[Rfam]
RNA sequence: UAUCUUAAUUGAAUAAAUUCUCGUAUAUGCCUGGUGAUAUGGACUGGGCGUCUCUACCUGCAAACCGUAAAAGUGCGGACUACGAGGAGUUGUAUGAUUUUA
Dot-bracket structure: .................((((((((...(((((((.......)))))))........(((((...........)))))..))))))))..............
Numbered sequence: 001u002a003u004c005u006u007a008a009u010u011g012a013a014u015a016a017a018u019u020c021u022c023g024u025a026u027a028u029g030c031c032u033g034g035u036g037a038u039a040u041g042g043a044c045u046g047g048g049c050g051u052c053u054c055u056a057c058c059u060g061c062a063a064a065c066c067g068u069a070a071a072a073g074u075g076c077g078g079a080c081u082a083c084g085a086g087g088a089g090u091u092g093u094a095u096g097a098u099u100u101u102a
Stems, first nucleotide, its partner, number of pairs: 018088008029049007058078005